[Rfam]
Shown here is a 128-nucleotide RNA sequence from Myotis lucifugus, a member of the family "Small nucleolar RNA SNORA69". About the family: U69 is a member of the H/ACA class of small nucleolar RNAs (snoRNAs) which act as guides in the the modification of uridines to pseudouridines. By type it is an H/ACA-box small nucleolar RNA. The organism belongs to Myotis, within Eukaryota. Pairs were carried over by alignment from the consensus structure, which was predicted with PFOLD.
RNA sequence: AAAGUAUGUGUAAAUUUUGCACUUAAUUUAUUAAUAUGUAUUCAUAAGUCCUGAAAGAAAAUCUUGUGUUGAUCAUUUUUUAUUUUGCCGUAUGAGGCUAAAAUCAUGACAGACUGACAUGGACAAUU
Numbered sequence: 001a002a003a004g005u006a007u008g009u010g011u012a013a014a015u016u017u018u019g020c021a022c023u024u025a026a027u028u029u030a031u032u033a034a035u036a037u038g039u040a041u042u043c044a045u046a047a048g049u050c051c052u053g054a055a056a057g058a059a060a061a062u063c064u065u066g067u068g069u070u071g072a073u074c075a076u077u078u079u080u081u082a083u084u085u086u087g088c089c090g091u092a093u094g095a096g097g098c099u100a101a102a103a104u105c106a107u108g109a110c111a112g113a114c115u116g117a118c119a120u121g122g123a124c125a126a127u128u
Stems, first nucleotide, its partner, number of pairs: 003052002006049001018040004023034002063122001065121007073113002080106001082104006088097002